The record is a 115-nucleotide RNA from Mesorhizobium waimense, which matches "Rhizobiales sRNA Atu_C8" in Rfam. The family's RNA type in Rfam is small RNA.
[Rfam]
Nucleotides: 115
Stems, first nucleotide, its partner, number of pairs: 023111002026108001028075009040054005057064001081101001083100007
Number, partner (000 for none) and nucleotide at each position: 001000g002000a003000a004000a005000a006000c007000g008000g009000c010000a011000c012000u013000c014000a015000u016000u017000c018000u019000c020000g021000u022000a023111g024110g025000a026108a027000a028075g029074c030073g031072c032071g033070u034069g035068g036067g037000c038000a039000a040054g041053g042052c043051g044050g045000u046000g047000u048000a049000a050044c051043c052042g053041c054040c055000g056000g057064g058000c059000g060000a061000a062000a063000a064057c065000c066000u067036c068035c069034c070033a071032u072031g073030c074029g075028c076000a077000u078000c079000a080000c081101a082000c083100a084099g085098g086097c087096u088095c089094c090000c091000u092000c093000g094089g095088g096087g097086g098085c099084c100083u101081u102000u103000u104000u105000u106000a107000u108026u109000g110024c111023c112000c113000g114000a115000a

Description:
Lineage of the source: Bacteria > Pseudomonadati > Pseudomonadota > Alphaproteobacteria > Mesorhizobium.